The record is a 391-nucleotide part of an RNA from Opitutia bacterium SCGC AG-212-L18, which matches "Bacterial large subunit ribosomal RNA" in Rfam. A search with the family's covariance model found it, with a score of 2836 bits. Rfam links the family to the GO terms ribosome and structural constituent of ribosome.
RNA sequence: GAUAAACACGGUUGAAAUCCGUGUCGCCGUAAGGAUAAGGUUUCCUGGGGAAGGUUCGUCCGCCCAGGGUUAGUCGGGUGCUAAGGCAAGGCCGGAAGGAGUCGUCGAUGCACAACAGGUUAAUAUUCCUGUACCACCUUAUAUGCGUCAUUACCAUCGGAGUGACGGAGAAAGCUAACUCAGCACGGUGUUGAAUGUCCGUGUCUAAGCGCUUAGGCUGUCUAGUAGGAAAAUCCGCUAGACAUUAAGGCUGAAACGUAAUGGGACUUUGAGGCUACGGCCGAUAAGGAUUGAGUGAUGCUAUGCUUCCAAGAAAACCUUCGUUGGGAGUCUAUAAGGUGCCCGUACCGCAAACCGACACAGGUAUCCGGGAUGAGUAUUCUAAGGCGCG
Numbered sequence: 001g002a003u004a005a006a007c008a009c010g011g012u013u014g015a016a017a018u019c020c021g022u023g024u025c026g027c028c029g030u031a032a033g034g035a036u037a038a039g040g041u042u043u044c045c046u047g048g049g050g051a052a053g054g055u056u057c058g059u060c061c062g063c064c065c066a067g068g069g070u071u072a073g074u075c076g077g078g079u080g081c082u083a084a085g086g087c088a089a090g091g092c093c094g095g096a097a098g099g100a101g102u103c104g105u106c107g108a109u110g111c112a113c114a115a116c117a118g119g120u121u122a123a124u125a126u127u128c129c130u131g132u133a134c135c136a137c138c139u140u141a142u143a144u145g146c147g148u149c150a151u152u153a154c155c156a157u158c159g160g161a162g163u164g165a166c167g168g169a170g171a172a173a174g175c176u177a178a179c180u181c182a183g184c185a186c187g188g189u190g191u192u193g194a195a196u197g198u199c200c201g202u203g204u205c206u207a208a209g210c211g212c213u214u215a216g217g218c219u220g221u222c223u224a225g226u227a228g229g230a231a232a233a234u235c236c237g238c239u240a241g242a243c244a245u246u247a248a249g250g251c252u253g254a255a256a257c258g259u260a261a262u263g264g265g266a267c268u269u270u271g272a273g274g275c276u277a278c279g280g281c282c283g284a285u286a287a288g289g290a291u292u293g294a295g296u297g298a299u300g301c302u303a304u305g306c307u308u309c310c311a312a313g314a315a316a317a318c319c320u321u322c323g324u325u326g327g328g329a330g331u332c333u334a335u336a337a338g339g340u341g342c343c344c345g346u347a348c349c350g351c352a353a354a355c356c357g358a359c360a361c362a363g364g365u366a367u368c369c370g371g372g373a374u375g376a377g378u379a380u381u382c383u384a385a386g387g388c389g390c391g
Base pairs, nucleotide, nucleotide: 006024007023008022009021010020011019025389026388027387028386033369034368035367036366039349040348044068045067046066047065048064049063053061054060075345076344077343078342080111081110085106086105087104089102092099093098115132116131117130118129119128135341136340137339138338139337140336141335142334143333145331154327155326158323159322160321161320162319167309168308169307170306173302174301175300178296179295180294181293182292183204184203185202186201187200188199205264206263209259210258211257216252217251218250220243221242222241223240224239225238226237228236229235267288268287269286355364356363371383372382373381